RNA sequence: AUGCGCGGGGAUCGCCGCCAGUCAGCGCGUUGCGCCCACUGGCGUCUUUGUC
Numbered sequence: 001a002u003g004c005g006c007g008g009g010g011a012u013c014g015c016c017g018c019c020a021g022u023c024a025g026c027g028c029g030u031u032g033c034g035c036c037c038a039c040u041g042g043c044g045u046c047u048u049u050g051u052c
Base pairs, nucleotide, nucleotide: 016044017043018042019041020040021039022038025035026034027033028032

Source information: ffh sRNA: a 52-nucleotide RNA sequence from Phaeovulum vinaykumarii.